[Rfam]
RNA sequence: AGGCGAUCUCAGGGCGGGGCGAAAUUCCCCACCGGCGGUAAGUGGUCCACCACAAGCCCGCGAGCGGCCUUCCAAUAAAGGCGGCAGAUCCGGUGUAACUCCGGAGCCGACGGUUAAAGUCCGGAUGAAAGAGAUCGGUA
Numbered sequence: 001a002g003g004c005g006a007u008c009u010c011a012g013g014g015c016g017g018g019g020c021g022a023a024a025u026u027c028c029c030c031a032c033c034g035g036c037g038g039u040a041a042g043u044g045g046u047c048c049a050c051c052a053c054a055a056g057c058c059c060g061c062g063a064g065c066g067g068c069c070u071u072c073c074a075a076u077a078a079a080g081g082c083g084g085c086a087g088a089u090c091c092g093g094u095g096u097a098a099c100u101c102c103g104g105a106g107c108c109g110a111c112g113g114u115u116a117a118a119g120u121c122c123g124g125a126u127g128a129a130a131g132a133g134a135u136c137g138g139u140a
Stems, first nucleotide, its partner, number of pairs: 004137007017029003031120002033109002035061004056107002064085002089105005111123003
The record is a 140-nucleotide RNA from Limoniibacter endophyticus, which matches "FMN riboswitch aptamer (RFN element)" in Rfam. Lineage of the source: Bacteria > Pseudomonadota > Hyphomicrobiales > Bartonellaceae > Limoniibacter. The RFN element is a highly conserved domain that is found frequently in the 5'-untranslated regions of prokaryotic mRNAs that encode for flavin mononucleotide (FMN) biosynthesis and transport proteins. Rfam 15.1 lists 6,230 matches to the family in 5,120 species. The family's consensus secondary structure is taken from published work.